[Rfam]
RNA sequence: UUUAGCGAUGGUGAUGGAGCUCACCGAAACCGCCCAGGAUUUUUCUUAAUUGCACCUCGGCUAAUGGCUCCUACGCUUCC
Numbered sequence: 001u002u003u004a005g006c007g008a009u010g011g012u013g014a015u016g017g018a019g020c021u022c023a024c025c026g027a028a029a030c031c032g033c034c035c036a037g038g039a040u041u042u043u044u045c046u047u048a049a050u051u052g053c054a055c056c057u058c059g060g061c062u063a064a065u066g067g068c069u070c071c072u073a074c075g076c077u078u079c080c
Base pairs, nucleotide, nucleotide: 010025011024012023013022016071017070018069019068020067021066032061033060034059
Dot-bracket structure: .........[[[[..((((((]]]]......(((........................)))....)))))).........
Rfam assigns this 80-nucleotide RNA from Picosynechococcus sp. PCC 7002 to the family "Fluoride riboswitch aptamer (crcB RNA motif)". The base pairs follow the family's consensus structure, which is taken from published work. Lineage of the source: Bacteria > Cyanophyceae > Oscillatoriophycideae > Chroococcales > Picosynechococcus.